[Rfam]
RNA sequence: GCGAGCAUGGUAUAGCGGCUGGUGCCUCGGGCCUCCAACCCGAUGACGCGAGUUCGACUCUCGCUGCUCGCU
Number, nucleotide and partner (000 for none) at each position: 001g071002c070003g069004a068005g067006c066007a065008u000009g000010g025011u024012a023013u022014a000015g000016c000017g000018g000019c000020u000021g000022g013023u012024g011025c010026c000027u043028c042029g041030g040031g039032c000033c000034u000035c000036c000037a000038a000039c031040c030041c029042g028043a027044u000045g000046a000047c000048g064049c063050g062051a061052g060053u000054u000055c000056g000057a000058c000059u000060c052061u051062c050063g049064c048065u007066g006067c005068u004069c003070g002071c001072u000

About this RNA:
Rfam assigns this 72-nucleotide sequence from Candidatus Acidiferrum panamense to the family "tRNA". It scores 52 bits against the family's covariance model. Pairs were carried over by alignment from the consensus structure, which is taken from published work. About the family: Transfer RNA (tRNA) molecules are approximately 80 nucleotides in length. Their secondary structure includes four short double-helical elements and three loops (D, anti-codon, and T loops). Further hydrogen bonds mediate the characteristic L-shaped molecular structure. tRNAs have two regions of fundamental functional importance: the anti-codon, which is responsible for specific mRNA codon recognition, and the 3' end, to which the tRNAs corresponding amino acid is attached (by aminoacyl-tRNA synthetases). tRNAs cope with the degeneracy of the genetic code in two manners: having more than one tRNA (with a specific anti-codon) for a particular amino acid; and 'wobble' base-pairing, i.e. permitting non-standard base-pairing at the 3rd anti-codon position. Rfam links the family to the GO term triplet codon-amino acid adaptor activity.